[Rfam]
RNA sequence: AGACAAUGGACGAGGGAGGCGGGGACGAGACAGAGCAUGGGAUGGACCUUUCAACACCAUACGAUGGGUCUUGUUGCCCUUUCCAUGCACUGCCUCUUCCCUGGCUCUCUCUCUCUCUCAUCUU
Numbered sequence: 001a002g003a004c005a006a007u008g009g010a011c012g013a014g015g016g017a018g019g020c021g022g023g024g025a026c027g028a029g030a031c032a033g034a035g036c037a038u039g040g041g042a043u044g045g046a047c048c049u050u051u052c053a054a055c056a057c058c059a060u061a062c063g064a065u066g067g068g069u070c071u072u073g074u075u076g077c078c079c080u081u082u083c084c085a086u087g088c089a090c091u092g093c094c095u096c097u098u099c100c101c102u103g104g105c106u107c108u109c110u111c112u113c114u115c116u117c118u119c120a121u122c123u124u
Stems, first nucleotide, its partner, number of pairs: 016107003020103006028095002031092003035088005041083001045079001
Rfam assigns this 124-nucleotide RNA from Sesamum indicum to the family "MIR408 microRNA precursor family". On this family, see Mica et al., BMC Genomics 2009: "High throughput approaches reveal splicing of primary microRNA transcripts and tissue specific expression of mature microRNAs in Vitis vinifera". Its family is annotated with RISC complex and miRNA-mediated post-transcriptional gene silencing in the Gene Ontology. Pairs were carried over by alignment from the consensus structure, which was predicted with WAR. A search with the family's covariance model found it, with a score of 78 bits.